[Rfam]
RNA: TPP riboswitch aptamer (THI element)
Organism: Streptacidiphilus pinicola
RNA sequence: AUCUGUAGACGCGGGAGCUCGGAGCACCGGGCUGAGAGGGCGCUGACAUCGCUGCGCCGACCGCAGGAACCUGACCGGGUAAUGCCGGCGUAGGGAGUAGUGGGUCUGAUGAC
Numbered sequence: 001a002u003c004u005g006u007a008g009a010c011g012c013g014g015g016a017g018c019u020c021g022g023a024g025c026a027c028c029g030g031g032c033u034g035a036g037a038g039g040g041c042g043c044u045g046a047c048a049u050c051g052c053u054g055c056g057c058c059g060a061c062c063g064c065a066g067g068a069a070c071c072u073g074a075c076c077g078g079g080u081a082a083u084g085c086c087g088g089c090g091u092a093g094g095g096a097g098u099a100g101u102g103g104g105u106c107u108g109a110u111g112a113c
Stems, first nucleotide, its partner, number of pairs: 009098002011064004017032005039058005070094004075088004